[Rfam]
RNA: Group II catalytic intron D1-D4-5
Organism: Paenibacillus donghaensis
RNA sequence: CCUAACUUUACAACCGAGGAUGGGAAUGACGGAACCAUGUAUCCCGAAACCAUCCCACCAAUACUCCUGCAUGCGUCAUGACUGACAGGUUAUGGGGUUUGAAGUACAGGUAGAUUCGGCAGAACAAAGGCUAGAGCCAUUCGAAUAGAAAAGGUAUGCUGACGGAUAUGCCGCGUGGCUGAAAA
Number, nucleotide and partner (000 for none) at each position: 001c000002c000003u000004a000005a000006c000007u000008u000009u000010a000011c000012a000013a000014c000015c000016g000017a000018g055019g054020a053021u052022g051023g050024g000025a000026a000027u000028g000029a000030c000031g045032g044033a000034a042035c000036c000037a000038u000039g000040u000041a000042u034043c000044c032045c031046g000047a000048a000049a000050c023051c022052a021053u020054c019055c018056c177057a176058c175059c000060a000061a000062u000063a000064c000065u000066c110067c109068u108069g107070c101071a100072u000073g098074c097075g000076u095077c094078a093079u092080g091081a090082c089083u088084g000085a000086c000087a000088g083089g082090u081091u080092a079093u078094g077095g076096g000097g074098u073099u000100u071101g070102a000103a000104g000105u000106a000107c069108a068109g067110g066111u000112a000113g000114a000115u000116u000117c173118g172119g171120c170121a169122g000123a000124a000125c164126a000127a000128a000129g160130g159131c148132u147133a146134g000135a000136g000137c000138c143139a000140u000141u000142c000143g138144a000145a000146u133147a132148g131149a000150a000151a000152a000153g000154g000155u000156a000157u000158g000159c130160u129161g000162a000163c000164g125165g000166a000167u000168a000169u121170g120171c119172c118173g117174c000175g058176u057177g056178g000179c000180u000181g000182a000183a000184a000185a000